[Rfam]
Description: Shown here is a 116-nucleotide RNA from Mytilus galloprovincialis, a member of the family "Vault RNA".
RNA sequence: GUGUUGGCUUAGUCAAGUGGUUAAUACUUCGUAUUUGUAAUGGCACAAAAAUUCAUUCCGUUGAAUCUUAACGGGUUCGAUUCCCAUAGAAACCACUGACGCUCUCCAGCAUUUUU
Numbered sequence: 001g002u003g004u005u006g007g008c009u010u011a012g013u014c015a016a017g018u019g020g021u022u023a024a025u026a027c028u029u030c031g032u033a034u035u036u037g038u039a040a041u042g043g044c045a046c047a048a049a050a051a052u053u054c055a056u057u058c059c060g061u062u063g064a065a066u067c068u069u070a071a072c073g074g075g076u077u078c079g080a081u082u083c084c085c086a087u088a089g090a091a092a093c094c095a096c097u098g099a100c101g102c103u104c105u106c107c108a109g110c111a112u113u114u115u116u
Stems, first nucleotide, its partner, number of pairs: 002111006012100004017096004029080003
The match comes from Rfam's covariance-model search (47 bits).